[Rfam]
RNA sequence: UGGUUAUCAAGAAAGGUGGAGGGAAUAGACCCUUUGAAACCUUAGCAACCCUUUACAACCUUUACGUAAAGAAGGUGCUAAAUUCUAUCUUGACGUUGAAUACAUAAUUC
Dot-bracket structure: .((((((.....(((((...(((..[[[[)))......)))))((((.((((((((.........))))))..))))))...(]]]]((........))..).)))))).